[Rfam]
RNA sequence: AAAGACUCCCAUCAAAGGGGUGGUUCCCCAUCCAGGUACAACUUUACCGUAUUCAGAAUUU
Numbered sequence: 001a002a003a004g005a006c007u008c009c010c011a012u013c014a015a016a017g018g019g020g021u022g023g024u025u026c027c028c029c030a031u032c033c034a035g036g037u038a039c040a041a042c043u044u045u046a047c048c049g050u051a052u053u054c055a056g057a058a059u060u061u
Base pairs, nucleotide, nucleotide: 017045018044019043020042021041023039024038026036027035

Rfam assigns this 61-nucleotide RNA from Leptolyngbya boryana to the family "Plastid-psbN 5UTR RNA". It scores 61 bits against the family's covariance model. The family's RNA type in Rfam is cis-regulatory element. The source organism's lineage runs through Bacteria, Cyanobacteriota, Cyanophyceae, Leptolyngbyaceae and Leptolyngbya boryana. Rfam's curators write: Plastid psbN is a non-coding RNA (ncRNA) recognised in plastids. Pairs were carried over by alignment from the consensus structure, which was predicted with LocARNA.